[Rfam]
RNA: c-di-GMP-II-GAG riboswitch aptamer
RNA sequence: CUUCUGACGGGAGGCUCCGACGCGCGGCCCAUGCUCCGGCCGCCGGGACCGCGCCGAGCCACUGGCGAGACCGACCCGCGCAGACG
Numbered sequence: 001c002u003u004c005u006g007a008c009g010g011g012a013g014g015c016u017c018c019g020a021c022g023c024g025c026g027g028c029c030c031a032u033g034c035u036c037c038g039g040c041c042g043c044c045g046g047g048a049c050c051g052c053g054c055c056g057a058g059c060c061a062c063u064g065g066c067g068a069g070a071c072c073g074a075c076c077c078g079c080g081c082a083g084a085c086g
Stems, first nucleotide, its partner, number of pairs: 001086001003084004008078004013060003022054006029047001038072002041067004